[Rfam]
The family of this 129-nucleotide sequence from Collichthys lucidus is "Small nucleolar RNA SNORA15". For this family Rfam cites "RNomics: an experimental approach that identifies 201 candidates for novel, small, non-messenger RNAs in mouse" (Huttenhofer et al., EMBO J, 2001). Rfam links the family to the GO terms nucleolus and RNA processing. ACA15 is a member of the H/ACA class of snoRNA that guide the sites of modification of uridines to pseudouridines.
RNA sequence: GCAUGGCAGAAUUCUGUGUUACUCCUGAAAUAGUAAAUGCAGUCAGACACCAUGCUAAAUUAUUGUUUUCACACACUGACUCAACAACAGGAUAAGAGGCCUUAUUCUUAUGUCAGAGUGAAUACAUGC
Numbered sequence: 001g002c003a004u005g006g007c008a009g010a011a012u013u014c015u016g017u018g019u020u021a022c023u024c025c026u027g028a029a030a031u032a033g034u035a036a037a038u039g040c041a042g043u044c045a046g047a048c049a050c051c052a053u054g055c056u057a058a059a060u061u062a063u064u065g066u067u068u069u070c071a072c073a074c075a076c077u078g079a080c081u082c083a084a085c086a087a088c089a090g091g092a093u094a095a096g097a098g099g100c101c102u103u104a105u106u107c108u109u110a111u112g113u114c115a116g117a118g119u120g121a122a123u124a125c126a127u128g129c
Stems, first nucleotide, its partner, number of pairs: 001055006014042006068122003074118001076116005087111001089109004